Rfam assigns this 74-nucleotide RNA from Mastacembelus armatus to the family "Small nucleolar RNA SNORD2". For this family Rfam cites "Identification of a novel box C/D snoRNA from mouse nucleolar cDNA library" (Zhou et al., Gene, 2004). The match comes from Rfam's covariance-model search (55 bits). Rfam classes the family as a C/D-box small nucleolar RNA. The organism belongs to Mastacembelus, within Eukaryota. Pairs were carried over by alignment from the consensus structure, which was predicted with WAR.
RNA sequence: GAGUGAAAUGAUGCUUAACCAUCUUUCGGGACUUACCUAUUGAUGGGGAUAACUUUUUUUUCCACUGAUCACUC
Numbered sequence: 001g002a003g004u005g006a007a008a009u010g011a012u013g014c015u016u017a018a019c020c021a022u023c024u025u026u027c028g029g030g031a032c033u034u035a036c037c038u039a040u041u042g043a044u045g046g047g048g049a050u051a052a053c054u055u056u057u058u059u060u061u062c063c064a065c066u067g068a069u070c071a072c073u074c
Stems, first nucleotide, its partner, number of pairs: 001074006